[Rfam]
RNA sequence: CGUAAAAAAGGAAAUGGUGUCUUCCUACCUGAACCGUCUUCCUCCCGGAAAGACUGAUGGCGCCUACAAAACC
Numbered sequence: 001c002g003u004a005a006a007a008a009a010g011g012a013a014a015u016g017g018u019g020u021c022u023u024c025c026u027a028c029c030u031g032a033a034c035c036g037u038c039u040u041c042c043u044c045c046c047g048g049a050a051a052g053a054c055u056g057a058u059g060g061c062g063c064c065u066a067c068a069a070a071a072c073c
Base pairs, nucleotide, nucleotide: 010025011024012023013022016064017063018062019061020060021059036054037053038052039051